[Rfam]
RNA: PAGEV RNA
Organism: Bathymodiolus platifrons methanotrophic gill symbiont
RNA sequence: CCUAUUUUGGAUUAGAUGAUAUUGGAAUAGGUCAGGACAGAGCUACCGAUCAAGGGUAUGUAGAGGUAGUCAGUAAGAUCAUAUUUGUAUAAAGUAGAAGUCGCGGGUUUAUACCGUCUCACCUGCGGGAAUUGAAUUUUAUAGUGCAAAUAUGCUGCGUAGCUGUACAGGGGGAUAUAUUUAUAUAUAUUCUAUAGCGCAGGGGCAGG
Number, nucleotide and partner (000 for none) at each position: 001c031002c030003u029004a028005u027006u026007u025008u000009g000010g000011a000012u000013u000014a000015g000016a000017u000018g000019a000020u000021a000022u000023u000024g000025g007026a006027a005028u004029a003030g002031g001032u000033c000034a000035g000036g000037a000038c000039a000040g000041a000042g070043c069044u068045a067046c066047c065048g000049a000050u000051c000052a000053a000054g000055g000056g000057u000058a000059u169060g168061u167062a166063g000064a000065g047066g046067u045068a044069g043070u042071c000072a000073g000074u000075a000076a000077g000078a000079u000080c154081a153082u152083a151084u150085u149086u148087g147088u146089a145090u000091a000092a000093a000094g000095u000096a000097g000098a000099a000100g000101u000102c000103g000104c000105g000106g000107g000108u000109u000110u000111a000112u000113a000114c000115c000116g000117u000118c000119u000120c000121a000122c000123c000124u000125g000126c000127g000128g000129g000130a000131a000132u000133u000134g000135a000136a000137u000138u000139u000140u000141a000142u000143a000144g000145u089146g088147c087148a086149a085150a084151u083152a082153u081154g080155c202156u201157g200158c199159g198160u197161a000162g000163c000164u000165g000166u062167a061168c060169a059170g000171g000172g000173g000174g191175a190176u189177a188178u187179a000180u000181u000182u000183a000184u000185a000186u000187a178188u177189a176190u175191u174192c000193u000194a000195u000196a000197g160198c159199g158200c157201a156202g155203g000204g000205g000206c000207a000208g000209g000